[Rfam]
RNA sequence: GGGAUGUGCUCAGAGCAGGGGGCCUGAGGAAUGGCUCCUCUGUUUACAACACACCCAACAGGAAUCUGGGAUCACUGUGGCGAGAGGUACCAAAACUUGUAGGCUUCCUAUGAACAAACUCUACAUGU
Number, nucleotide and partner (000 for none) at each position: 001g000002g056003g055004a000005u053006g052007u051008g050009c000010u000011c000012a000013g045014a044015g043016c042017a041018g040019g039020g038021g037022g035023c034024c033025u000026g000027a000028g000029g000030a000031a000032u000033g024034g023035c022036u000037c021038c020039u019040c018041u017042g016043u015044u014045u013046a000047c000048a000049a000050c008051a007052c006053a005054c000055c003056c002057a000058a000059c000060a000061g000062g000063a000064a000065u000066c000067u000068g000069g121070g120071a000072u000073c000074a000075c000076u116077g115078u114079g000080g000081c112082g111083a000084g105085a000086g000087g000088u101089a100090c099091c000092a097093a000094a000095a000096c000097u092098u000099g090100u089101a088102g000103g000104c000105u084106u000107c000108c000109u000110a000111u082112g081113a000114a078115c077116a076117a000118a000119c000120u070121c069122u000123a000124c000125a000126u000127g000128u000
Shown here is a 128-nucleotide RNA sequence, a member of the family "Small nucleolar RNA SNORA11". U107 (SNORA11) is a member of the H/ACA class of snoRNAs that guide the sites of modification of uridines to pseudouridines. This snoRNA was identified by RT-PCR from blood cells and its expression confirmed by Northern blot analysis. There is no predicted target for this guide snRNA. On this family, see Gu et al., Nucleic Acids Res 2005: "A novel experimental approach for systematic identification of box H/ACA snoRNAs from eukaryotes". Rfam 15.1 lists 2,014 matches to the family in 202 species. Rfam's curators put it in the seed alignment.